The family of this 53-nucleotide sequence is "Plastid-ccsA-ndhD-2 3UTR RNA". The family has 421 seed sequences and 875 matches in Rfam 15.1. A reference for the family is Richter et al. (2023), "Retrograde signaling in plants: A critical review focusing on the GUN pathway and beyond", Plant Commun. Plastid ccsA-ndhD-2 is a non-coding RNA (ncRNA) recognised in plastids.
RNA sequence: CUGGAUAGAACCCCCUGAAUCAAAUAUUGUAGUGAUUCGCGGGGUUCUAUCCA
Numbered sequence: 001c002u003g004g005a006u007a008g009a010a011c012c013c014c015c016u017g018a019a020u021c022a023a024a025u026a027u028u029g030u031a032g033u034g035a036u037u038c039g040c041g042g043g044g045u046u047c048u049a050u051c052c053a
Base pairs, nucleotide, nucleotide: 004051005050006049007048008047009046010045011044012043013042014041016039017038018037019036020035021034022033
Dot-bracket structure: ...(((((((((((.(((((((..........))))))).)))))))))))..